[Rfam]
RNA: DnaX ribosomal frameshifting element
Nucleotides: 062
Base pairs, nucleotide, nucleotide: 032058033057034056035055036054037053039051040050041049042048
Number, partner (000 for none) and nucleotide at each position: 001000a002000g003000c004000a005000g006000g007000g008000a009000g010000a011000a012000a013000a014000c015000a016000a017000a018000g019000g020000a021000a022000a023000a024000a025000a026000g027000a028000g029000u030000g031000a032058a033057c034056c035055g036054g037053c038000g039051g040050c041049g042048c043000g044000g045000a046000a047000c048042g049041c050040g051039c052000g053037g054036c055035c056034g057033g058032u059000g060000a061000g062000u